[Rfam]
A member of the RNA family "BsrF" from Saliterribacillus persicus, 104 nucleotides long. The family's RNA type in Rfam is small RNA. A search with the family's covariance model found it, with a score of 79 bits.
RNA sequence: GCGAUGAGCUAUUUUGCGUAAGACGAAAAAUUUGCCUAACGGCUAAACGUUGAAUGUGGUCAACGGUUUUUCGCCGCAAAACGUACAUGACACUUUAUAAGUGU
Numbered sequence: 001g002c003g004a005u006g007a008g009c010u011a012u013u014u015u016g017c018g019u020a021a022g023a024c025g026a027a028a029a030a031u032u033u034g035c036c037u038a039a040c041g042g043c044u045a046a047a048c049g050u051u052g053a054a055u056g057u058g059g060u061c062a063a064c065g066g067u068u069u070u071u072c073g074c075c076g077c078a079a080a081a082c083g084u085a086c087a088u089g090a091c092a093c094u095u096u097a098u099a100a101g102u103g104u
Base pairs, nucleotide, nucleotide: 014079015078016077017076018075024073025072026071027070028069029068030067031066034043035042048065049064051062052061053060090104091103092102093101094100
Lineage of the source: Bacteria > Bacillati > Caryophanales > Bacillaceae > Saliterribacillus.
A reference for the family is Saito et al. (2008), "Novel small RNA-encoding genes in the intergenic regions of Bacillus subtilis", Gene.